[Rfam]
RNA sequence: GAGAUACCCUUAUGGGGUCGGACUUGCUUUAGUGGGGCUUUGGUGUUCACUGAGUCUGCCUCUUGAGUGUAUCACU
Numbered sequence: 001g002a003g004a005u006a007c008c009c010u011u012a013u014g015g016g017g018u019c020g021g022a023c024u025u026g027c028u029u030u031a032g033u034g035g036g037g038c039u040u041u042g043g044u045g046u047u048c049a050c051u052g053a054g055u056c057u058g059c060c061u062c063u064u065g066a067g068u069g070u071a072u073c074a075c076u
Base pairs, nucleotide, nucleotide: 001075003073004072005071006070007069009067010066011065012064014062015061016060017059018058021056022055023054029053030052031051032050033049034048035047036046037044038043
Rfam assigns this 76-nucleotide RNA from Myotis brandtii to the family "mir-9229 microRNA precursor family".
Rfam links the family to the GO terms miRNA-mediated post-transcriptional gene silencing and RISC complex.
The family's consensus secondary structure was predicted with RNAalifold.